[Rfam]
RNA sequence: AAAAAGGGCUUCUGUGGUGAUUGACGCAGGGAGGCUGAGGGAGUCUCAUCCUCUGCGCGGAAUCGCCAUCAAGAGAUUUCGGAAGCAUCAUUUUUAAUUUUUAUUUUAAAAUAAUUUCCCUGCUGGGAUGAAUAAAGUA
Numbered sequence: 001a002a003a004a005a006g007g008g009c010u011u012c013u014g015u016g017g018u019g020a021u022u023g024a025c026g027c028a029g030g031g032a033g034g035c036u037g038a039g040g041g042a043g044u045c046u047c048a049u050c051c052u053c054u055g056c057g058c059g060g061a062a063u064c065g066c067c068a069u070c071a072a073g074a075g076a077u078u079u080c081g082g083a084a085g086c087a088u089c090a091u092u093u094u095u096a097a098u099u100u101u102u103a104u105u106u107u108a109a110a111a112u113a114a115u116u117u118c119c120c121u122g123c124u125g126g127g128a129u130g131a132a133u134a135a136a137g138u139a
Stems, first nucleotide, its partner, number of pairs: 008086005013026003017022001027057001030054005036048004058081007104137004109133001112130002115128004
Shown here is a 139-nucleotide sequence from Xiphophorus maculatus, a member of the family "U11 spliceosomal RNA". It scores 68 bits against the family's covariance model. The base pairs follow the family's consensus structure, which is taken from published work.